RNA sequence: GGCAAUAAACUGCCGAUGUAAUAAACCUUUCGGACCCGGGGGCGGUACCCGGCGCCUCCACCUGAGCCCACUUCGCGAGCGUUGCAUCGUGGGUUGAGGCGGGGGCGAAAUAGGAUCGACGAGGGCGUAAAGAUCGGACUUUUGCUCGGCAUGGUACCACCGUCAUCGGGCUGUAAAAGUAGUUGCCAACGACAACUAUGCGGAAGUCCGUCUCGCCGCUUAA
Numbered sequence: 001g002g003c004a005a006u007a008a009a010c011u012g013c014c015g016a017u018g019u020a021a022u023a024a025a026c027c028u029u030u031c032g033g034a035c036c037c038g039g040g041g042g043c044g045g046u047a048c049c050c051g052g053c054g055c056c057u058c059c060a061c062c063u064g065a066g067c068c069c070a071c072u073u074c075g076c077g078a079g080c081g082u083u084g085c086a087u088c089g090u091g092g093g094u095u096g097a098g099g100c101g102g103g104g105g106c107g108a109a110a111u112a113g114g115a116u117c118g119a120c121g122a123g124g125g126c127g128u129a130a131a132g133a134u135c136g137g138a139c140u141u142u143u144g145c146u147c148g149g150c151a152u153g154g155u156a157c158c159a160c161c162g163u164c165a166u167c168g169g170g171c172u173g174u175a176a177a178a179g180u181a182g183u184u185g186c187c188a189a190c191g192a193c194a195a196c197u198a199u200g201c202g203g204a205a206g207u208c209c210g211u212c213u214c215g216c217c218g219c220u221u222a223a
Stems, first nucleotide, its partner, number of pairs: 001146005014136004026125003030122003036052005053107007147162003
Dot-bracket structure: (((((........((((........(((.(((...(((((.......)))))(((((((.........................................)))))))............)))))).......)))).....)))))(((..........))).............................................................

The record is a 223-nucleotide RNA sequence from Aureimonas sp. AU20, which matches "permuted transfer-messenger RNA" in Rfam. The organism belongs to Aureimonas, within Bacteria. The family's consensus secondary structure is taken from published work.